Rfam assigns this 292-nucleotide RNA from Brevibacillus sp. WF146 to the family "BsrG". Lineage of the source: Bacteria > Bacillota > Caryophanales > Paenibacillaceae > Brevibacillus. Gene Ontology terms of the family: toxin activity and autolysis. The base pairs follow the family's consensus structure, which was predicted with WAR.

RNA sequence: UACAAUAGAAUCGGCUCCUCAAGGGUGGUCGCGGCUCAUCUCCCAUGUCGGAAACAGGGGGAGGUGAGAUCCAUGGCAAUAACGUACGAAGCACUAUCCCUCAUGAUUCAGUUUGGCGGCUUCAUCGUCGGCCUGCUGGGUCUUGUCGUGACGAUCGUCGUUGCCUUGACUCAAAAAAAGAAGUAGAUCACCCUUGAGCCUGGCAGCUUGGUGAUCUACUCUCUUCUGCAGUAGAGCCGCCCCCUUGUGGGGAACGUCUAUUGUGCAGGGCCGGAGCGCGGCAACGCUCUUG
Numbered sequence: 001u002a003c004a005a006u007a008g009a010a011u012c013g014g015c016u017c018c019u020c021a022a023g024g025g026u027g028g029u030c031g032c033g034g035c036u037c038a039u040c041u042c043c044c045a046u047g048u049c050g051g052a053a054a055c056a057g058g059g060g061g062a063g064g065u066g067a068g069a070u071c072c073a074u075g076g077c078a079a080u081a082a083c084g085u086a087c088g089a090a091g092c093a094c095u096a097u098c099c100c101u102c103a104u105g106a107u108u109c110a111g112u113u114u115g116g117c118g119g120c121u122u123c124a125u126c127g128u129c130g131g132c133c134u135g136c137u138g139g140g141u142c143u144u145g146u147c148g149u150g151a152c153g154a155u156c157g158u159c160g161u162u163g164c165c166u167u168g169a170c171u172c173a174a175a176a177a178a179a180g181a182a183g184u185a186g187a188u189c190a191c192c193c194u195u196g197a198g199c200c201u202g203g204c205a206g207c208u209u210g211g212u213g214a215u216c217u218a219c220u221c222u223c224u225u226c227u228g229c230a231g232u233a234g235a236g237c238c239g240c241c242c243c244c245u246u247g248u249g250g251g252g253a254a255c256g257u258c259u260a261u262u263g264u265g266c267a268g269g270g271c272c273g274g275a276g277c278g279c280g281g282c283a284a285c286g287c288u289c290u291u292g
Stems, first nucleotide, its partner, number of pairs: 001265005007259003011253001012239006018198008028188003036067003040063005075165005092105002115159004208228001210226001240252004271292001273290006